The record is a 75-nucleotide RNA from Actinoplanes octamycinicus, which matches "ASpks TB sRNA" in Rfam. For this family Rfam cites "Identification of small RNAs in Mycobacterium tuberculosis" (Arnvig and Young, Mol Microbiol, 2009). The organism belongs to Actinoplanes, within Bacteria. Rfam classes the family as an antisense RNA.
[Rfam]
RNA sequence: CUUGAUCGAGCCGAGCAGCAGCGGCUGCUCCGGCGAGUGCCCGGGGCCGUAGGUGGCGAUCACCGCCUGCGCCUC
Numbered sequence: 001c002u003u004g005a006u007c008g009a010g011c012c013g014a015g016c017a018g019c020a021g022c023g024g025c026u027g028c029u030c031c032g033g034c035g036a037g038u039g040c041c042c043g044g045g046g047c048c049g050u051a052g053g054u055g056g057c058g059a060u061c062a063c064c065g066c067c068u069g070c071g072c073c074u075c
Stems, first nucleotide, its partner, number of pairs: 014026003031071002038065002043060001047056003